[Rfam]
RNA sequence: GGAGCAGUUUCUGGAGAGACCGCACAUGUUUGCGGCGCCGAAGGGUUCACUAUCUCAGGCAAAAGAACAGAAGUUUAAUA
Numbered sequence: 001g002g003a004g005c006a007g008u009u010u011c012u013g014g015a016g017a018g019a020c021c022g023c024a025c026a027u028g029u030u031u032g033c034g035g036c037g038c039c040g041a042a043g044g045g046u047u048c049a050c051u052a053u054c055u056c057a058g059g060c061a062a063a064a065g066a067a068c069a070g071a072a073g074u075u076u077a078a079u080a
Stems, first nucleotide, its partner, number of pairs: 006075008020035004037060003040056002044054003
RNA: Glycine riboswitch aptamer